[Rfam]
RNA sequence: UUCUUAUCCAGAGAGGUGGAGGGAUAUGGCCCUAUGAAACCUCGGCAGCAGGUUCUAAUGAACACUGUGCCAAUUCCACGGGAAGCUAUUCCCGAGAGAUAAGUU
Numbered sequence: 001u002u003c004u005u006a007u008c009c010a011g012a013g014a015g016g017u018g019g020a021g022g023g024a025u026a027u028g029g030c031c032c033u034a035u036g037a038a039a040c041c042u043c044g045g046c047a048g049c050a051g052g053u054u055c056u057a058a059u060g061a062a063c064a065c066u067g068u069g070c071c072a073a074u075u076c077c078a079c080g081g082g083a084a085g086c087u088a089u090u091c092c093c094g095a096g097a098g099a100u101a102a103g104u105u
Stems, first nucleotide, its partner, number of pairs: 003103006013043005021032003027078003044071004049067002052063004075097001079094006
RNA: SAM riboswitch aptamer (S box leader)
Organism: Pseudoneobacillus rhizosphaerae